mir-935 microRNA precursor family: an 80-nucleotide sequence from Sus scrofa.
RNA sequence: GGCGCAGGCGGCAGUGGCGGGAGCGGCCCCUCGGCCAUCCUCCGUCUGCCCAGUUACCGCUUCCGCUACCGCCGCCGCUC
Numbered sequence: 001g002g003c004g005c006a007g008g009c010g011g012c013a014g015u016g017g018c019g020g021g022a023g024c025g026g027c028c029c030c031u032c033g034g035c036c037a038u039c040c041u042c043c044g045u046c047u048g049c050c051c052a053g054u055u056a057c058c059g060c061u062u063c064c065g066c067u068a069c070c071g072c073c074g075c076c077g078c079u080c
Stems, first nucleotide, its partner, number of pairs: 001080002004078002007076006014069013030053002033050003
Dot-bracket structure: ((.((.((((((.(((((((((((((...((.(((............))).))...))))))))))))).))))))))))